Rfam assigns this 127-nucleotide RNA from Sodalis ligni to the family "RtT RNA".

RNA sequence: CAUUGCGCACCAGGGGGAAGGUUGAGAACCUUCGACAAGGUUCGAGUCGAGCAACGCGAGACAACGUCGCUUGCGACGGCCCGAAGGGUGAGGAACGAAGUGACGAAUAAUCCUUCCCCCACCACCA
Dot-bracket structure: ..............(((((((.(.........((.(....((((...((.......))......(((((....)))))...)))).).))...................).))))))).........
Rfam 15.1 lists 651 matches to the family in 204 species. Rfam describes the family as follows. This family represents a bacterial cis-regulatory element known as RtT RNA. The exact function of RtT is unknown although it is thought that it may be involved in changing the cellular response in relation to amino acid starvation. On this family, see Bosl and Kersten, Nucleic Acids Res 1991: "A novel RNA product of the tyrT operon of Escherichia coli".